[Rfam]
RNA sequence: GCCGAGCUCAGUAGCGCGGGCUUGUCACCCAAGUGGGGGCUAUGAGGUGAUGGGACGUUGUUCCAGCCCAGGAGGUUGGAUUCGGUUUGGCUAAUUUCUGGCUUGCCCAUUCCAAGCUUGGAGUUGAACCAUGGGAAUCAAGCGAAGGCUUGGCUCUCCUGAUUCCUAGAGCAGAGGGUACCGCGUCAGGCUGGCUUCACAGAGCAGCGACCACCUCUCGCUCCUGGCAGUGGAAGGAUUACAGGCCGUUGCCACACGAGUCCGCAUAGCCGGAUGGGUUGCCUAAUUUGGACCGUCACCUUU
Numbered sequence: 001g002c003c004g005a006g007c008u009c010a011g012u013a014g015c016g017c018g019g020g021c022u023u024g025u026c027a028c029c030c031a032a033g034u035g036g037g038g039g040c041u042a043u044g045a046g047g048u049g050a051u052g053g054g055a056c057g058u059u060g061u062u063c064c065a066g067c068c069c070a071g072g073a074g075g076u077u078g079g080a081u082u083c084g085g086u087u088u089g090g091c092u093a094a095u096u097u098c099u100g101g102c103u104u105g106c107c108c109a110u111u112c113c114a115a116g117c118u119u120g121g122a123g124u125u126g127a128a129c130c131a132u133g134g135g136a137a138u139c140a141a142g143c144g145a146a147g148g149c150u151u152g153g154c155u156c157u158c159c160u161g162a163u164u165c166c167u168a169g170a171g172c173a174g175a176g177g178g179u180a181c182c183g184c185g186u187c188a189g190g191c192u193g194g195c196u197u198c199a200c201a202g203a204g205c206a207g208c209g210a211c212c213a214c215c216u217c218u219c220g221c222u223c224c225u226g227g228c229a230g231u232g233g234a235a236g237g238a239u240u241a242c243a244g245g246c247c248g249u250u251g252c253c254a255c256a257c258g259a260g261u262c263c264g265c266a267u268a269g270c271c272g273g274a275u276g277g278g279u280u281g282c283c284u285a286a287u288u289u290g291g292a293c294c295g296u297c298a299c300c301u302u303u
Stems, first nucleotide, its partner, number of pairs: 001040003004023006028037003044302010056290002059286001063281001065279001068277003074271004078263007088254003092251002099248007107237002110235005116228003120224005126165003130161002133158004138153006166171001173218005184209003191202003